[Rfam]
RNA sequence: GAAACCUUUAAUUCAGUCCUGUGAGGCUGGCAAGGAAAUCGGACAUGUUCAGUAAAGAUGGGGAGUUGUGUAUACUCCUGAUUUUUCUUGAACCUGAAAAGCUUUCUGCCUCUCGCAGAAAGCUUUUUUUAU
Numbered sequence: 001g002a003a004a005c006c007u008u009u010a011a012u013u014c015a016g017u018c019c020u021g022u023g024a025g026g027c028u029g030g031c032a033a034g035g036a037a038a039u040c041g042g043a044c045a046u047g048u049u050c051a052g053u054a055a056a057g058a059u060g061g062g063g064a065g066u067u068g069u070g071u072a073u074a075c076u077c078c079u080g081a082u083u084u085u086u087c088u089u090g091a092a093c094c095u096g097a098a099a100a101g102c103u104u105u106c107u108g109c110c111u112c113u114c115g116c117a118g119a120a121a122g123c124u125u126u127u128u129u130u131a132u
Stems, first nucleotide, its partner, number of pairs: 005035004013030006054086006061079006096128014
Dot-bracket structure: ....((((....((((((......)))))).))))..................((((((.((((((.......)))))).)))))).........((((((((((((((.....))))))))))))))....
A member of the RNA family "PyrR binding site" from Aneurinibacillus migulanus, 132 nucleotides long. The literature on the family includes a 2001 paper in Nucleic Acids Res by Bonner et al., "Molecular recognition of pyr mRNA by the Bacillus subtilis attenuation regulatory protein PyrR". By type it is a cis-regulatory element.